[Rfam]
RNA: Small nucleolar RNA SNORD58
Organism: Triplophysa tibetana
RNA sequence: GUACAAUGAUGAGAAUCUUAGGACACCUUUGAAGGUUACCACCAAUGAAACGAAAUCGUAUACUGAGUAUU
Numbered sequence: 001g002u003a004c005a006a007u008g009a010u011g012a013g014a015a016u017c018u019u020a021g022g023a024c025a026c027c028u029u030u031g032a033a034g035g036u037u038a039c040c041a042c043c044a045a046u047g048a049a050a051c052g053a054a055a056u057c058g059u060a061u062a063c064u065g066a067g068u069a070u071u
Stems, first nucleotide, its partner, number of pairs: 001070004